[Rfam]
RNA sequence: UCAUCUCUAUCUUUGAAGUCAUGUUUAAAAUGAAAAAAAAUAACUGGUGGUGGAAUAACUUACGUCAAACUUCGUGAGCUAAACUGCUAUUUUCAAUAUAGAAAUUAAAAAGGCUUGUU
Numbered sequence: 001u002c003a004u005c006u007c008u009a010u011c012u013u014u015g016a017a018g019u020c021a022u023g024u025u026u027a028a029a030a031u032g033a034a035a036a037a038a039a040a041u042a043a044c045u046g047g048u049g050g051u052g053g054a055a056u057a058a059c060u061u062a063c064g065u066c067a068a069a070c071u072u073c074g075u076g077a078g079c080u081a082a083a084c085u086g087c088u089a090u091u092u093u094c095a096a097u098a099u100a101g102a103a104a105u106u107a108a109a110a111a112g113g114c115u116u117g118u119u
Base pairs, nucleotide, nucleotide: 036099038097042092043091045089046088047087049085050084051083056081057080059078060077061076062072064070
RNA: Bacteroidete tryptophan peptide leader RNA
Organism: Christiangramia forsetii